A member of the RNA family "Actinobacteria sRNA Ms_IGR-5" from Motilibacter rhizosphaerae, 195 nucleotides long. The base pairs follow the family's consensus structure. The literature on the family includes a 2013 paper in RNA by Li et al., "Identification of small RNAs in Mycobacterium smegmatis using heterologous Hfq".
RNA sequence: ACACGGGAAGGGAGGUGGUCCGCGACUUUGGAUAGUUCAAGGACUCGUGAGGUGGCUGCCAGCUAGCCACGACUCCCGGGCGACCGGUCGUAGACGCGGCCGGCUACACCCAGGCAGUCACCGGGACCCGCGGGCGCUGAGGACCUAGUCCCCUCGGCACAUGGUCGUGAUACGACCGCCCGCGGGUCCUUCCAU
Number, nucleotide and partner (000 for none) at each position: 001a000002c000003a000004c000005g000006g000007g000008a000009a000010g000011g000012g000013a000014g060015g059016u058017g057018g056019u055020c000021c000022g000023c000024g000025a000026c000027u000028u000029u000030g000031g000032a000033u000034a000035g000036u000037u000038c000039a000040a000041g000042g000043a000044c000045u000046c000047g000048u000049g000050a000051g000052g000053u000054g000055g019056c018057u017058g016059c015060c014061a105062g104063c103064u102065a000066g100067c099068c000069a000070c096071g095072a000073c000074u092075c000076c090077c000078g000079g000080g000081c000082g000083a000084c000085c000086g000087g000088u000089c000090g076091u000092a074093g000094a000095c071096g070097c000098g000099g067100c066101c000102g064103g063104c062105u061106a000107c000108a000109c000110c000111c000112a000113g000114g000115c000116a000117g000118u000119c000120a000121c000122c000123g000124g189125g188126a187127c186128c185129c184130g183131c182132g181133g180134g179135c178136g177137c157138u156139g155140a154141g153142g152143a000144c000145c000146u000147a000148g000149u000150c000151c000152c142153c141154u140155c139156g138157g137158c000159a000160c000161a000162u000163g000164g000165u000166c000167g000168u000169g000170a000171u000172a000173c000174g000175a000176c000177c136178g135179c134180c133181c132182g131183c130184g129185g128186g127187u126188c125189c124190u000191u000192c000193c000194a000195u000